This 166-nucleotide sequence from Oryza brachyantha belongs to the Rfam family "MIR2118 microRNA precursor family". On this family, see Xue et al., Nucleic Acids Res 2009: "Characterization and expression profiles of miRNAs in rice seeds". The base pairs follow the family's consensus structure, which was predicted with RNAalifold.
[Rfam]
RNA sequence: GUGAGCCAGGAAGAGGAAGAGAGACUCUUAAGAGCAGUAGGAAUGGGAACAUGAAGGAAAGCCUGACUAAGCUCUAACUCAUGGAGCUGUAGAUUUUAGUGUGGUGAUUUUCCUGAUGCCUCCCAUUCCUAUAGUUCUUAGGUGCUCGUUCCUCUUACUUUCGGCU
Numbered sequence: 001g002u003g004a005g006c007c008a009g010g011a012a013g014a015g016g017a018a019g020a021g022a023g024a025c026u027c028u029u030a031a032g033a034g035c036a037g038u039a040g041g042a043a044u045g046g047g048a049a050c051a052u053g054a055a056g057g058a059a060a061g062c063c064u065g066a067c068u069a070a071g072c073u074c075u076a077a078c079u080c081a082u083g084g085a086g087c088u089g090u091a092g093a094u095u096u097u098a099g100u101g102u103g104g105u106g107a108u109u110u111u112c113c114u115g116a117u118g119c120c121u122c123c124c125a126u127u128c129c130u131a132u133a134g135u136u137c138u139u140a141g142g143u144g145c146u147c148g149u150u151c152c153u154c155u156u157a158c159u160u161u162c163g164g165c166u
Stems, first nucleotide, its partner, number of pairs: 010156002013153001015151003021147003026142002029140007038131011050118003054114001056113006062106001